Description:
Shown here is a 303-nucleotide RNA sequence from Cicer arietinum, a member of the family "Plant signal recognition particle RNA".
[Rfam]
RNA sequence: GCCGAGUUGAGUAACUACAACUUGUGACCCAAGUGGGGGCAAUAUUGUGAUGGAACAUGGCUUUGGCCCAACAGGUUGGACUGGUGGCCACACUUUGCUGGCCUGCCCACUCCAAGUUGAGAGUUAGGCCAUGGAAUUUGGGCGAAGGCUCAGGUUUCCUUGUCUCUAAAAUGGAGGGAACCGCAUGAGGCUGGCUUCACAGAGCAGUGAACACCUCCUGCUCUUGACAGUGGAGGGAUAACAGGCUGCUGUAGUCUCAGUCCACAUGGCCUGUUGAGUCUAGCCCAUUGAACCAUCACUUUU
Number, nucleotide and partner (000 for none) at each position: 001g040002c039003c038004g023005a022006g021007u020008u019009g018010a000011g016012u000013a000014a000015c000016u011017a000018c009019a008020a007021c006022u005023u004024g000025u000026g000027a000028c037029c036030c035031a000032a000033g000034u000035g030036g029037g028038g003039g002040c001041a000042a000043u000044a302045u000046u000047g299048u298049g297050a296051u295052g294053g293054a000055a000056c290057a289058u287059g286060g285061c283062u282063u000064u000065g279066g000067c000068c000069c276070a275071a274072c273073a272074g271075g270076u269077u268078g263079g262080a261081c260082u259083g258084g257085u000086g255087g000088c254089c000090a252091c000092a000093c000094u000095u000096u000097g000098c000099u248100g247101g246102c245103c244104u243105g242106c000107c237108c236109a000110c235111u234112c233113c232114a231115a000116g228117u227118u226119g225120a224121g223122a222123g221124u220125u000126a165127g164128g163129c162130c000131a160132u000133g158134g157135a156136a155137u154138u153139u152140g151141g150142g149143c148144g000145a000146a000147g000148g143149c142150u141151c140152a139153g138154g137155u136156u135157u134158c133159c000160u131161u000162g129163u128164c127165u126166c000167u000168a000169a000170a000171a000172u000173g218174g217175a216176g215177g214178g000179a000180a000181c000182c000183g000184c209185a208186u207187g000188a000189g000190g000191c202192u201193g200194g000195c000196u000197u000198c000199a000200c193201a192202g191203a000204g000205c000206a000207g186208u185209g184210a000211a000212c000213a000214c177215c176216u175217c174218c173219u000220g124221c123222u122223c121224u120225u119226g118227a117228c116229a000230g000231u114232g113233g112234a111235g110236g108237g107238a000239u000240a000241a000242c105243a104244g103245g102246c101247u100248g099249c000250u000251g000252u090253a000254g088255u086256c000257u084258c083259a082260g081261u080262c079263c078264a000265c000266a000267u000268g077269g076270c075271c074272u073273g072274u071275u070276g069277a000278g000279u065280c000281u000282a062283g061284c000285c060286c059287a058288u000289u057290g056291a000292a000293c053294c052295a051296u050297c049298a048299c047300u000301u000302u044303u000
By type it is a non-coding RNA gene. Pairs were carried over by alignment from the consensus structure, which is taken from published work. Lineage of the source: Eukaryota > Viridiplantae > Tracheophyta > fabids > Cicer.